[Rfam]
The family of this 135-nucleotide sequence from Virgibacillus sp. MSP4-1 is "Ribosomal protein L20 leader". The literature on the family includes a 1994 paper in Prog Nucleic Acid Res Mol Biol by Zengel and Lindahl, "Diverse mechanisms for regulating ribosomal protein synthesis in Escherichia coli". Rfam's curators write: This family is a putative r-protein leader autoregulatory structure found in B. subtilis and other low-GC Gram-positive bacteria. It is annotated as a cis-regulatory leader. It scores 78 bits against the family's covariance model.

RNA sequence: AUGUGAAAGUAGAAGCACCCGCUUCUCGCCUGAUCGACGCUAAACAGCAGUUGGCAGGCUAAAACAACUUUUCUUCUUUACCGAAGAAUAUGUGAAGUGUGGGUGCAGUAUGUGUACCGACGCUUUUUUUAUGGA
Numbered sequence: 001a002u003g004u005g006a007a008a009g010u011a012g013a014a015g016c017a018c019c020c021g022c023u024u025c026u027c028g029c030c031u032g033a034u035c036g037a038c039g040c041u042a043a044a045c046a047g048c049a050g051u052u053g054g055c056a057g058g059c060u061a062a063a064a065c066a067a068c069u070u071u072u073c074u075u076c077u078u079u080a081c082c083g084a085a086g087a088a089u090a091u092g093u094g095a096a097g098u099g100u101g102g103g104u105g106c107a108g109u110a111u112g113u114g115u116a117c118c119g120a121c122g123c124u125u126u127u128u129u130u131a132u133g134g135a
Base pairs, nucleotide, nucleotide: 011026012025013024014023015022016021028059029058030057036052037051038050039048040047098122099121100120102118103117104116105115106114107113